[Rfam]
RNA sequence: GUAGUCGGAUUUACAUCAAUCCGCAUGUAUUGAGGUGGAUUGGUGUGGAACUUGAACUACAUUCUAUUCCAAUCCACACCAACACACAUGGAUUGAAGUGAAUUCGACA
Numbered sequence: 001g002u003a004g005u006c007g008g009a010u011u012u013a014c015a016u017c018a019a020u021c022c023g024c025a026u027g028u029a030u031u032g033a034g035g036u037g038g039a040u041u042g043g044u045g046u047g048g049a050a051c052u053u054g055a056a057c058u059a060c061a062u063u064c065u066a067u068u069c070c071a072a073u074c075c076a077c078a079c080c081a082a083c084a085c086a087c088a089u090g091g092a093u094u095g096a097a098g099u100g101a102a103u104u105c106g107a108c109a
Base pairs, nucleotide, nucleotide: 004108005107006106007105008104009103010102011101012100013099014098016096017095018094019093020092021091022090023089026086027085028084030082031081032080035077036076037075038074039073040072041071042070043069045067046066047065
The family of this 109-nucleotide RNA from Sorghum bicolor is "MIR5565 microRNA precursor family". The match comes from Rfam's covariance-model search (97 bits). Rfam links the family to the GO terms miRNA-mediated post-transcriptional gene silencing and RISC complex. The base pairs follow the family's consensus structure, which was predicted with RNAalifold.